[Rfam]
RNA sequence: AAAUGCCAUUUGGUAUCUGACACCUGGUCAUUUUUUGUGAUUCUGUGUCUCGAAAUGAGGGGCAAUGGAACUUUGUGACACUGGCUGCUCCUAAUGAGCCUCUAGUUACUAUAUAUCCAUUUACAUCA
Number, nucleotide and partner (000 for none) at each position: 001a000002a000003a000004u000005g000006c000007c000008a000009u057010u000011u000012g000013g000014u000015a000016u000017c000018u000019g049020a048021c047022a046023c045024c000025u000026g042027g041028u040029c039030a000031u000032u000033u000034u000035u000036u000037g000038u000039g029040a028041u027042u026043c000044u000045g023046u022047g021048u020049c019050u000051c000052g000053a000054a000055a000056u000057g009058a000059g000060g000061g000062g000063c000064a121065a120066u119067g118068g117069a000070a000071c000072u000073u000074u000075g000076u000077g000078a000079c000080a106081c105082u104083g103084g102085c000086u000087g099088c098089u097090c000091c000092u000093a000094a000095u000096g000097a089098g088099c087100c000101u000102c084103u083104a082105g081106u080107u000108a000109c000110u000111a000112u000113a000114u000115a000116u000117c068118c067119a066120u065121u064122u000123a000124c000125a000126u000127c000128a000

Shown here is a 128-nucleotide sequence from Triticum urartu, a member of the family "Small nucleolar RNA F1/F2/snoR5a".